[Rfam]
RNA sequence: GGACGCCCGAACAGGGACCUGGAACGAGGGACUACGUGAGGGAAGAGGAGCCAAGGACGUCCGACCGCUAACAAAAACAAUAGAAAGAUAAAUCUUCCCGAUCACCGCGGGAACCUGCGCGUCUGAAUCGAAGGUAAGUGACUGCGUCCGAAAUGGACAAGAGAUUAAUGUUCAACAUCAAUUUAUGUAGGGAACAUUUAAAAGAGGCUUAAAGAUAUGAUGAGUAAAGAGGUUAGGUGAGAGAUUUGUUUAAAUUUUUGAUUUUAAAAGACACAUUGCCCUU
Numbered sequence: 001g002g003a004c005g006c007c008c009g010a011a012c013a014g015g016g017a018c019c020u021g022g023a024a025c026g027a028g029g030g031a032c033u034a035c036g037u038g039a040g041g042g043a044a045g046a047g048g049a050g051c052c053a054a055g056g057a058c059g060u061c062c063g064a065c066c067g068c069u070a071a072c073a074a075a076a077a078c079a080a081u082a083g084a085a086a087g088a089u090a091a092a093u094c095u096u097c098c099c100g101a102u103c104a105c106c107g108c109g110g111g112a113a114c115c116u117g118c119g120c121g122u123c124u125g126a127a128u129c130g131a132a133g134g135u136a137a138g139u140g141a142c143u144g145c146g147u148c149c150g151a152a153a154u155g156g157a158c159a160a161g162a163g164a165u166u167a168a169u170g171u172u173c174a175a176c177a178u179c180a181a182u183u184u185a186u187g188u189a190g191g192g193a194a195c196a197u198u199u200a201a202a203a204g205a206g207g208c209u210u211a212a213a214g215a216u217a218u219g220a221u222g223a224g225u226a227a228a229g230a231g232g233u234u235a236g237g238u239g240a241g242a243g244a245u246u247u248g249u250u251u252a253a254a255u256u257u258u259u260g261a262u263u264u265u266a267a268a269a270g271a272c273a274c275a276u277u278g279c280c281c282u283u
Stems, first nucleotide, its partner, number of pairs: 006030003014025001035048001037046001094134002096131002102126003106121004143159002147157004166211003170208001172207002218260003222257004228247003233242001267283002270280001272278001

A member of the RNA family "Mason-Pfizer monkey virus packaging signal" from Cercocebus atys, 283 nucleotides long. Taxonomically the source falls in Cercocebus (Eukaryota, Eumetazoa, Craniata, Eutheria). From the family's description: This family represents a group of sequences that are related to the Mason-Pfizer monkey virus (MPMV) packaging signal. The packaging signal is located in the 5' UTR and is required for specific RNA encapsidation. Gene Ontology term of the family: viral genome packaging. Pairs were carried over by alignment from the consensus structure, which was predicted with PFOLD.